[Rfam]
Nucleotides: 108
Stems, first nucleotide, its partner, number of pairs: 006107004011023004025102006034093004040068007069082003
Number, partner (000 for none) and nucleotide at each position: 001000g002000a003000u004000u005000g006107u007106g008105g009104c010000g011023u012022g013021u014020c015000a016000a017000u018000c019000g020014g021013a022012c023011a024000u025102g026101a027100c028099g029098g030097g031000g032000a033000u034093g035092g036091u037090g038000g039000a040068c041067g042066c043065a044064g045063c046062g047000g048000u049000u050000u051000u052000u053000c054000c055000g056000a057000u058000u059000u060000c061000u062046c063045g064044c065043u066042g067041c068040g069082g070081g071080c072000a073000a074000c075000g076000a077000a078000a079000u080071g081070c082069c083000a084000g085000g086000c087000g088000a089000g090037c091036g092035c093034c094000c095000a096000a097030c098029c099028c100027g101026u102025c103000c104009g105008c106007c107006g108000u
Rhizobiales sRNA Atu_At1: a 108-nucleotide sequence from Rhizobium sp. Root1212. Rfam 15.1 lists 200 matches to the family in 177 species. By type it is a small RNA.